The family of this 80-nucleotide sequence from Cottoperca gobio is "Small nucleolar RNA SNORD72". Rfam describes the family as follows. snoRNA HBII-240 belongs to the CD family of snoRNAs. It is the human orthologue of the mouse MBII-240 and is predicted to guide 2'O-ribose methylation of the large 28S rRNA at residue U4590. Rfam classes the family as a C/D-box small nucleolar RNA. The pairing is the family consensus, mapped onto this sequence. Taxonomically the source falls in Cottoperca (Eukaryota, Vertebrata, Euteleosteomorpha, Acanthomorphata). On this family, see Huttenhofer et al., EMBO J 2001: "RNomics: an experimental approach that identifies 201 candidates for novel, small, non-messenger RNAs in mouse". Its family is annotated with nucleolus and RNA processing in the Gene Ontology.
RNA sequence: GUCUUGUCAAUGAUGUUUCCAAACACAAAUGUCUGAACAUAUGAUUUCCUGUGAUUCAUUAUUCUGUUCUGAGACAAGAC
Dot-bracket structure: .(((((((................................................................))))))).